[Rfam]
RNA sequence: CUGCGUUCCUGAGCUCUAUCUGUGACUUGUGUUUUCAUUUCUAUUCACAUCACAGGCAGAGUUCUAGCUAUGCGG
Numbered sequence: 001c002u003g004c005g006u007u008c009c010u011g012a013g014c015u016c017u018a019u020c021u022g023u024g025a026c027u028u029g030u031g032u033u034u035u036c037a038u039u040u041c042u043a044u045u046c047a048c049a050u051c052a053c054a055g056g057c058a059g060a061g062u063u064c065u066a067g068c069u070a071u072g073c074g075g
Stems, first nucleotide, its partner, number of pairs: 004072003009067002011064006020055006029048003
RNA: mir-11 microRNA precursor family
Organism: Psylliodes chrysocephalus